[Rfam]
RNA sequence: UCUUUCAUUCAAAAGUGCUCUGGGCUGCCAGAGCCCUGGUCAUUGAUAGUACAGGGAGAGGAACCGCUGAAAGCAUUUCCCCAUGUUGGAAGAGCUCAUCCUGUCCUUUCCAAACUCUGGAGCUUUCAUACA
Numbered sequence: 001u002c003u004u005u006c007a008u009u010c011a012a013a014a015g016u017g018c019u020c021u022g023g024g025c026u027g028c029c030a031g032a033g034c035c036c037u038g039g040u041c042a043u044u045g046a047u048a049g050u051a052c053a054g055g056g057a058g059a060g061g062a063a064c065c066g067c068u069g070a071a072a073g074c075a076u077u078u079c080c081c082c083a084u085g086u087u088g089g090a091a092g093a094g095c096u097c098a099u100c101c102u103g104u105c106c107u108u109u110c111c112a113a114a115c116u117c118u119g120g121a122g123c124u125u126u127c128a129u130a131c132a
Stems, first nucleotide, its partner, number of pairs: 001056004007050003014044004019039002022036004066129001068128007085115003088111001089109004
Notes: The record is a 132-nucleotide RNA from Panthera leo, which matches "Small nucleolar RNA SNORA71" in Rfam. The match comes from Rfam's covariance-model search (100 bits). Rfam describes the family as follows. The members of this family belong to the H/ACA class of snoRNAs which bind a number of proteins (including dyskerin, Gar1p and Nop10p) to form snoRNP complexes. This class of snoRNAs are thought to guide the sites of modification of uridines to pseudouridines by forming direct base pairing interactions with substrate RNAs. This family includes U71 (SNORA71), ACA39 (SNORA39) and ACA60 (SNORA60). Pairs were carried over by alignment from the consensus structure, which was predicted with PFOLD. Taxonomically the source falls in Panthera (Eukaryota, Euteleostomi, Boreoeutheria, Felidae). It is annotated as an H/ACA-box small nucleolar RNA.